[Rfam]
A member of the RNA family "Group II catalytic intron D1-D4-3" from Pelagibaculum spongiae, 165 nucleotides long. It scores 135 bits against the family's covariance model. Rfam's curators write: Group II introns are found in rRNA, tRNA and mRNA of organelles in fungi, plants and protists, and also in mRNA in bacteria.
Nucleotides: 165
Base pairs, nucleotide, nucleotide: 001016002015003014004013005012006011028165030163031162036158037157041152042151043150044149045148046147047145048144049143050142051141063140064139065138066137067136068135074132075131076130079127080126081125082124083123085113086112087111088110091106092105093104094103
Number, partner (000 for none) and nucleotide at each position: 001016u002015u003014a004013u005012c006011u007000g008000u009000g010000a011006g012005g013004a014003u015002g016001g017000g018000u019000c020000u021000g022000a023000a024000g025000g026000a027000a028165g029000c030163c031162g032000g033000a034000u035000g036158g037157c038000a039000a040000a041152g042151c043150u044149g045148c046147g047145a048144g049143c050142c051141g052000a053000c054000g055000a056000a057000c058000a059000g060000a061000a062000a063140c064139c065138a066137c067136a068135u069000a070000c071000g072000a073000g074132g075131c076130u077000u078000a079127g080126c081125u082124c083123u084000g085113g086112g087111g088110u089000g090000a091106g092105u093104u094103u095000g096000c097000a098000c099000a100000a101000g102000a103094a104093g105092a106091c107000g108000a109000a110088a111087u112086c113085c114000u115000u116000u117000g118000g119000u120000u121000c122000a123083g124082g125081g126080g127079u128000a129000g130076a131075g132074u133000a134000a135068a136067u137066g138065u139064g140063g141051c142050g143049g144048u145047u146000g147046u148045g149044c150043a151042g152041u153000g154000a155000a156000a157037g158036u159000g160000c161000a162031u163030g164000u165028u